[Rfam]
RNA sequence: CUUCACCGAGCCCAGCCACAGCGGCUGGUCGGCGGGCCGGUCCUGACCGUAGGUGGCCAGCAGCGCAUGCGCCUC
Numbered sequence: 001c002u003u004c005a006c007c008g009a010g011c012c013c014a015g016c017c018a019c020a021g022c023g024g025c026u027g028g029u030c031g032g033c034g035g036g037c038c039g040g041u042c043c044u045g046a047c048c049g050u051a052g053g054u055g056g057c058c059a060g061c062a063g064c065g066c067a068u069g070c071g072c073c074u075c
Base pairs, nucleotide, nucleotide: 014026015025016024017023032070033069038065039064043060044059045058047056048055049054
RNA: ASpks TB sRNA